[Rfam]
RNA sequence: GCACUGGGGUGUGUUCCCACCUUCUGAUGUUGUUUAAUCACGUGAUACAACAUCGUAGGGCGGGGCACAUCCCAGGGU
Numbered sequence: 001g002c003a004c005u006g007g008g009g010u011g012u013g014u015u016c017c018c019a020c021c022u023u024c025u026g027a028u029g030u031u032g033u034u035u036a037a038u039c040a041c042g043u044g045a046u047a048c049a050a051c052a053u054c055g056u057a058g059g060g061c062g063g064g065g066c067a068c069a070u071c072c073c074a075g076g077g078u
Base pairs, nucleotide, nucleotide: 002076004075005074006073007072008071009070010069011068012067013066014065016064017063018062020060021059022058023057025055026054027053028052029051030050031049032048033047037046038045039044
This 78-nucleotide RNA sequence from Branchiostoma belcheri belongs to the Rfam family "mir-4873 microRNA precursor family". Gene Ontology terms of the family: miRNA-mediated post-transcriptional gene silencing and RISC complex. The organism belongs to Branchiostoma, within Eukaryota. Rfam's curators put it in the seed alignment. Rfam 15.1 lists 3 matches to the family in 3 species. Pairs were carried over by alignment from the consensus structure, which was predicted with RNAalifold.